[Rfam]
Rfam assigns this 67-nucleotide RNA sequence from Cnephaeus nilssonii to the family "mir-9256 microRNA precursor family". Rfam 15.1 lists 31,772 matches to the family in 5 species.
RNA sequence: ACAGACACUGAGUGGCCAGAUUAUUAUGAUUUCAGAGAUCAUAAUAAUCUGGCCACUUAGUGUAUAC
Numbered sequence: 001a002c003a004g005a006c007a008c009u010g011a012g013u014g015g016c017c018a019g020a021u022u023a024u025u026a027u028g029a030u031u032u033c034a035g036a037g038a039u040c041a042u043a044a045u046a047a048u049c050u051g052g053c054c055a056c057u058u059a060g061u062g063u064a065u066a067c
Stems, first nucleotide, its partner, number of pairs: 005063013019049010